[Rfam]
Magnesium riboswitch aptamer (Magnesium responsive RNA element): a 113-nucleotide RNA from Salmonella enterica. Taxonomically the source falls in Salmonella enterica subsp. enterica (Bacteria, Pseudomonadati, Gammaproteobacteria, Salmonella). From the family's description: The Magnesium sensor RNA element is a cis-regulatory element that regulates the expression of the magnesium transporter protein MgtA. It is located in the 5' UTR of this gene. The element adopts different structures depending on the presence or absence of Mg2+, this has the affect of regulating whether transcription reads through the mgtA coding region or stops within the 5' UTR.

RNA sequence: CUUACCGGAGGCGACAUGGACCCUGAACCCACCCCUCUCCCGCGAUGGAGAAUUUUCCUUUUCCGGUAAGCCUGCCUCUGCUGUCUUACCGGUGUGUAAGACAGUGACACAAU
Numbered sequence: 001c002u003u004a005c006c007g008g009a010g011g012c013g014a015c016a017u018g019g020a021c022c023c024u025g026a027a028c029c030c031a032c033c034c035c036u037c038u039c040c041c042g043c044g045a046u047g048g049a050g051a052a053u054u055u056u057c058c059u060u061u062u063c064c065g066g067u068a069a070g071c072c073u074g075c076c077u078c079u080g081c082u083g084u085c086u087u088a089c090c091g092g093u094g095u096g097u098a099a100g101a102c103a104g105u106g107a108c109a110c111a112a113u
Base pairs, nucleotide, nucleotide: 001070002069003068004067005066006065007064008063009062010061011060017031018030019029036051037050038049039048040047080105081104082103083102084101085100086099087098088097089096
On this family, see Spinelli et al., FEMS Microbiol Lett 2008: "Regulation of magnesium homeostasis in Salmonella: Mg(2+) targets the mgtA transcript for degradation by RNase E".